[Rfam]
RNA sequence: CUACAAAAGUGUGUCUGUGGUUCCUGUCUUUGGACACGUAAGAAUUGGAUUUGGAGAAGUCUGGAGCCAGCUUGCUCCCUGCAGGCUCAAGAGCAACCAUCCCACAUAG
Numbered sequence: 001c002u003a004c005a006a007a008a009g010u011g012u013g014u015c016u017g018u019g020g021u022u023c024c025u026g027u028c029u030u031u032g033g034a035c036a037c038g039u040a041a042g043a044a045u046u047g048g049a050u051u052u053g054g055a056g057a058a059g060u061c062u063g064g065a066g067c068c069a070g071c072u073u074g075c076u077c078c079c080u081g082c083a084g085g086c087u088c089a090a091g092a093g094c095a096a097c098c099a100u101c102c103c104a105c106a107u108a109g
Stems, first nucleotide, its partner, number of pairs: 010038007019024001047102003051099001069087007